[Rfam]
RNA sequence: ACUGGGACCAGUUGGGACCGGUCAUGGGCAAAAUAAAUAUUUUUUGUCCACUGUUGCAGUCUUCCUAGAGCAAAGUGGAGGUCUCUGUCUGCUUUAGGACAGCCAGCUAAAUCAGAUUGUUCCCCUCCUUACACA
Numbered sequence: 001a002c003u004g005g006g007a008c009c010a011g012u013u014g015g016g017a018c019c020g021g022u023c024a025u026g027g028g029c030a031a032a033a034u035a036a037a038u039a040u041u042u043u044u045u046g047u048c049c050a051c052u053g054u055u056g057c058a059g060u061c062u063u064c065c066u067a068g069a070g071c072a073a074a075g076u077g078g079a080g081g082u083c084u085c086u087g088u089c090u091g092c093u094u095u096a097g098g099a100c101a102g103c104c105a106g107c108u109a110a111a112u113c114a115g116a117u118u119g120u121u122c123c124c125c126u127c128c129u130u131a132c133a134c135a
Base pairs, nucleotide, nucleotide: 004065005064006063009059011057012056025050026049027048028047029046035042036041077128078127079126080125081124085119087117088116089115091113093111094110095109096108097107